RNA sequence: UGCAAAUGAUGCUUUUUCUCACGAUGGUCUUCCAAGCCCUCUGGGUAUUGACGACAGUGCCUAAUGGCAUUGCUGAUGCAAUCCG
Numbered sequence: 001u002g003c004a005a006a007u008g009a010u011g012c013u014u015u016u017u018c019u020c021a022c023g024a025u026g027g028u029c030u031u032c033c034a035a036g037c038c039c040u041c042u043g044g045g046u047a048u049u050g051a052c053g054a055c056a057g058u059g060c061c062u063a064a065u066g067g068c069a070u071u072g073c074u075g076a077u078g079c080a081a082u083c084c085g
Base pairs, nucleotide, nucleotide: 001080002079003078004077
Shown here is an 85-nucleotide RNA sequence from Austrofundulus limnaeus, a member of the family "Small nucleolar RNA SNORD35". It scores 70 bits against the family's covariance model. From the family's description: U35 is a C/D box snoRNA located in intron 6 of ribosomal protein L13A and intron 3 of ribosomal protein S11 in humans and at homologous positions in mouse and chicken ribosomal protein genes. U35 guides the methylation of 2'-O-ribose sites in 28S rRNA. Its Rfam clan is "SNORD35 clan". Taxonomically the source falls in Austrofundulus (Eukaryota, Deuterostomia, Chordata, Ovalentaria). For this family Rfam cites "Intron-encoded, antisense small nucleolar RNAs: the characterization of nine novel species points to their direct role as guides for the 2'-O-ribose methylation of rRNAs" (Nicoloso et al., J Mol Biol, 1996). Its family is annotated with nucleolus and RNA processing in the Gene Ontology.